[Rfam]
RNA sequence: UUCUUAUCUAGAGAGGUAGAGGGACCUGGCCCUAUGACACCUCAGCAACAGGCUGAUUGCACUGUGCUAAUUCCAGCAAGCGCUUAGAAGCUUGAACGAUAAGAA
Numbered sequence: 001u002u003c004u005u006a007u008c009u010a011g012a013g014a015g016g017u018a019g020a021g022g023g024a025c026c027u028g029g030c031c032c033u034a035u036g037a038c039a040c041c042u043c044a045g046c047a048a049c050a051g052g053c054u055g056a057u058u059g060c061a062c063u064g065u066g067c068u069a070a071u072u073c074c075a076g077c078a079a080g081c082g083c084u085u086a087g088a089a090g091c092u093u094g095a096a097c098g099a100u101a102a103g104a105a
Stems, first nucleotide, its partner, number of pairs: 001105008013043005021032003026076004044068004049064002052060002077094005